Rfam assigns this 352-nucleotide RNA sequence from Actibacterium mucosum to the family "Alphaproteobacteria transfer-messenger RNA". The family's RNA type in Rfam is non-coding RNA gene. The family's consensus secondary structure is taken from published work. A search with the family's covariance model found it, with a score of 308 bits.
RNA sequence: CUGCUUGCAACGGUAAAUGGCAGGGCAUAUGUUCGGUGUGUCGGCUUGCCGACUAUGGACAUAAACGCGCUCGUAAUAAGCGGAUCGGACCCGGGGGCGGUACCCGGCGACUCCACCAACCAUCCUUCGUUUGGGGAUCAUGGGGUCGAAAUAGGAUCGACGAACGUCUAAAGGGGUUAGCUUUGUUUCGGUGAGAUACCACCGUUAUCGGUUCAUUUAAGCUAGUUGCAAACGACAACAAAGCUCCGAUGGCUCUGGCUGCUUAAGCAGUUCGAGUGAUCGAAAUCUUAAGCCCUGUCGCCUAGCCGCGGCAGGCGGGGUUCGCAGGCACCUGGCAACAGAAGCCUGCACU
Number, nucleotide and partner (000 for none) at each position: 001c000002u000003g000004c000005u000006u000007g000008c000009a000010a000011c000012g000013g000014u000015a000016a000017a000018u000019g000020g000021c000022a000023g000024g000025g000026c000027a000028u000029a000030u000031g000032u000033u000034c000035g000036g000037u000038g000039u000040g053041u052042c051043g050044g049045c000046u000047u000048g000049c044050c043051g042052a041053c040054u000055a000056u000057g188058g187059a186060c185061a184062u000063a000064a000065a000066c000067g181068c180069g177070c176071u175072c174073g000074u000075a000076a000077u000078a000079a000080g000081c166082g165083g000084a000085u163086c162087g161088g000089a000090c000091c107092c106093g105094g104095g103096g000097g000098c000099g000100g000101u000102a000103c095104c094105c093106g092107g091108c148109g147110a146111c145112u144113c143114c142115a000116c000117c000118a000119a000120c000121c000122a000123u000124c000125c000126u000127u000128c000129g000130u000131u000132u000133g000134g000135g000136g000137a000138u000139c000140a000141u000142g114143g113144g112145g111146u110147c109148g108149a000150a000151a000152u000153a000154g000155g000156a000157u000158c000159g000160a000161c087162g086163a085164a000165c082166g081167u000168c000169u000170a000171a000172a000173g000174g072175g071176g070177u069178u000179a000180g068181c067182u000183u000184u061185g060186u059187u058188u057189c204190g203191g202192u201193g000194a000195g214196a213197u000198a212199c211200c210201a192202c191203c190204g189205u000206u000207a000208u000209c000210g200211g199212u198213u196214c195215a000216u000217u000218u000219a000220a000221g000222c000223u000224a000225g000226u000227u000228g000229c000230a000231a000232a000233c000234g000235a000236c000237a000238a000239c000240a000241a000242a000243g000244c000245u000246c000247c000248g000249a000250u000251g000252g000253c000254u000255c000256u000257g000258g000259c000260u000261g000262c000263u000264u000265a000266a000267g000268c000269a000270g000271u000272u000273c000274g000275a000276g000277u000278g000279a000280u000281c000282g000283a000284a000285a000286u000287c000288u000289u000290a000291a000292g000293c000294c000295c000296u000297g000298u000299c000300g000301c000302c000303u000304a000305g000306c000307c000308g000309c000310g000311g000312c000313a000314g000315g000316c000317g000318g333319g332320g331321u330322u000323c000324g349325c348326a347327g346328g345329c344330a321331c320332c319333u318334g000335g000336c000337a000338a000339c000340a000341g000342a000343a000344g329345c328346c327347u326348g325349c324350a000351c000352u000